[Rfam]
This 165-nucleotide RNA from Streptomyces sp. NWU339 belongs to the Rfam family "c-di-AMP riboswitch aptamer (ydaO/yuaA leader)". NCBI's taxonomy places the organism under Bacteria, Bacillati, Actinomycetota, Streptomycetaceae, Streptomyces.
RNA sequence: AGCCCGCACACACUGACCCGUGUACGGCAGGAGCGGGGGACCCACAGGUACCACUGCCUGUUCCGGUCUCCGGAACAGGCUCGGGGUUAAGUCGCGUCUCGACGCGACCGGGCAUCUCCAGUCCGAACCCGACAGCUCACCUCGUAGGCGCCGGAGAGGAAUUCG
Numbered sequence: 001a002g003c004c005c006g007c008a009c010a011c012a013c014u015g016a017c018c019c020g021u022g023u024a025c026g027g028c029a030g031g032a033g034c035g036g037g038g039g040a041c042c043c044a045c046a047g048g049u050a051c052c053a054c055u056g057c058c059u060g061u062u063c064c065g066g067u068c069u070c071c072g073g074a075a076c077a078g079g080c081u082c083g084g085g086g087u088u089a090a091g092u093c094g095c096g097u098c099u100c101g102a103c104g105c106g107a108c109c110g111g112g113c114a115u116c117u118c119c120a121g122u123c124c125g126a127a128c129c130c131g132a133c134a135g136c137u138c139a140c141c142u143c144g145u146a147g148g149c150g151c152c153g154g155a156g157a158g159g160a161a162u163u164c165g
Stems, first nucleotide, its partner, number of pairs: 003031002033145006043083001084130003092107004110124004
Rfam's curators write: This family represents a conserved RNA structure found upstream of the ydaO and yuaA genes in Bacillus subtilis and related genes in other bacteria. The ydaO/yuaA element is thought to act as a genetic 'off' switch for the ydaO and yuaA genes in its native state. It is believed that the element may be triggered during osmotic shock leading to activation of ydaO, a predicted amino acid transporter gene, and members of the yuaA-yubG operon which code for KtrA and KtrB K+ transporters.